[Rfam]
Description: The family of this 75-nucleotide RNA sequence from Alligator mississippiensis is "Mammalian CPEB3 ribozyme". NCBI's taxonomy places the organism under Eukaryota, Sarcopterygii, Amniota, Alligatorinae, Alligator.
RNA sequence: CGAGAGGUUCAAGGCCACAGUACAAGUAUUCACAGUGUAGCCUGUUAAGAUUCCAACAAAUCUGCGAGUUCUGCU
Numbered sequence: 001c002g003a004g005a006g007g008u009u010c011a012a013g014g015c016c017a018c019a020g021u022a023c024a025a026g027u028a029u030u031c032a033c034a035g036u037g038u039a040g041c042c043u044g045u046u047a048a049g050a051u052u053c054c055a056a057c058a059a060a061u062c063u064g065c066g067a068g069u070u071c072u073g074c075u
Base pairs, nucleotide, nucleotide: 013042014041015040019075020074021073022072024070025069026038027037028036046064048063049062050061051060052059